[Rfam]
Source information
This 109-nucleotide RNA sequence from Sinocyclocheilus rhinocerous belongs to the Rfam family "Vault RNA". For this family Rfam cites "Evolution of Vault RNAs" (Stadler et al., Mol Biol Evol, 2009). The family's RNA type in Rfam is non-coding RNA gene. Taxonomically the source falls in Sinocyclocheilus (Eukaryota, Actinopteri, Otophysi, Cyprininae). The base pairs follow the family's consensus structure, which is taken from published work. About the family: This family of RNAs are found as part of the enigmatic vault ribonucleoprotein complex. The complex consists of a major vault protein (MVP), two minor vault proteins (VPARP and TEP1), and several small untranslated RNA molecules. It has been suggested that the vault complex is involved in drug resistance.

RNA sequence: GCGUUGGUUUGGCUCAGUGGUUACUUCCGAUUUACGAGAAAUCCCCGUCUCAUGGCCACCGGGAAACCGGCGACCGGAGAUCGAACCUCGGGCGCUGUCCAACGUUUUC
Numbered sequence: 001g002c003g004u005u006g007g008u009u010u011g012g013c014u015c016a017g018u019g020g021u022u023a024c025u026u027c028c029g030a031u032u033u034a035c036g037a038g039a040a041a042u043c044c045c046c047g048u049c050u051c052a053u054g055g056c057c058a059c060c061g062g063g064a065a066a067c068c069g070g071c072g073a074c075c076g077g078a079g080a081u082c083g084a085a086c087c088u089c090g091g092g093c094g095c096u097g098u099c100c101a102a103c104g105u106u107u108u109c
Base pairs, nucleotide, nucleotide: 002104003103004102005101006100007099012093013092014091015090017089019087020086025079026078027077028076029075